[Rfam]
RNA sequence: GAUCCCUUUUAAGUGCAGUCCAGAGAGGCUGACAAAGGAGUUGCAAGCGAACACAUUCAUUCGCUGCAUGCCCUCUUUGUCUCCUUCUGGAGGAAGAGGGUUUUUGU
Dot-bracket structure: ..(.(((((......(((((......)))))..))))).).....((((((........))))))....(((((((((..((((....)))))))))))))......
Numbered sequence: 001g002a003u004c005c006c007u008u009u010u011a012a013g014u015g016c017a018g019u020c021c022a023g024a025g026a027g028g029c030u031g032a033c034a035a036a037g038g039a040g041u042u043g044c045a046a047g048c049g050a051a052c053a054c055a056u057u058c059a060u061u062c063g064c065u066g067c068a069u070g071c072c073c074u075c076u077u078u079g080u081c082u083c084c085u086u087c088u089g090g091a092g093g094a095a096g097a098g099g100g101u102u103u104u105u106g107u
Stems, first nucleotide, its partner, number of pairs: 003040001005038005016031005046065006070101009081092004

Rfam assigns this 107-nucleotide RNA sequence from Jeotgalibacillus campisalis to the family "PyrR binding site". A search with the family's covariance model found it, with a score of 54 bits. The family has 41 seed sequences and 1,498 matches in Rfam 15.1. About the family: This family represents the PyrR binding site and terminator structure. This RNA structure is found upstream of a variety of genes involved in pyrimidine biosynthesis and transport. For this family Rfam cites "Molecular recognition of pyr mRNA by the Bacillus subtilis attenuation regulatory protein PyrR" (Bonner et al., Nucleic Acids Res, 2001). The source organism's lineage runs through Bacteria, Bacillota, Bacilli, Caryophanaceae and Jeotgalibacillus. The family's consensus secondary structure is taken from published work. The family's RNA type in Rfam is cis-regulatory element.